RNA sequence: CCCCACCGGUACGGCGCACUCCACUUUUUGCACCGCACCGGCAAAUGAAAAGGAGGAAUGAGCCGCUGUGGCUGGCGGUGCGGCAAUGUGGAGACUUGCCGUAAGACGCGAGGGACAUUUUCCGCCCCGCGUGAGGCUGUCGUUUGCGGAGGCAGGGCAGCUACAGUCAAGAUGUAUGGCA
Dot-bracket structure: .....(((((.(((.(((..........))).))).))))).....................[[[[..((((((]]]]((((((((.((....))))))))))..(((((.(((..........))))))))..(((((((...(((....))).))))))).))))))............
About this RNA
The record is a 181-nucleotide RNA sequence, which matches "malK-I RNA" in Rfam. The family's RNA type in Rfam is cis-regulatory element. It is one of the family's seed sequences.